[Rfam]
RNA: DUF3800-IX RNA
Organism: Marilutibacter penaei
RNA sequence: CCCCUUCGGACCGAACCGUCUCCGUAUGGUGUGCUUGCCGGGCAAUCGCCCGACUAGGCCGAAGGUGCGGA
Numbered sequence: 001c002c003c004c005u006u007c008g009g010a011c012c013g014a015a016c017c018g019u020c021u022c023c024g025u026a027u028g029g030u031g032u033g034c035u036u037g038c039c040g041g042g043c044a045a046u047c048g049c050c051c052g053a054c055u056a057g058g059c060c061g062a063a064g065g066u067g068c069g070g071a
Stems, first nucleotide, its partner, number of pairs: 001067001003065006011058002018034002020031001022029002037054001039052003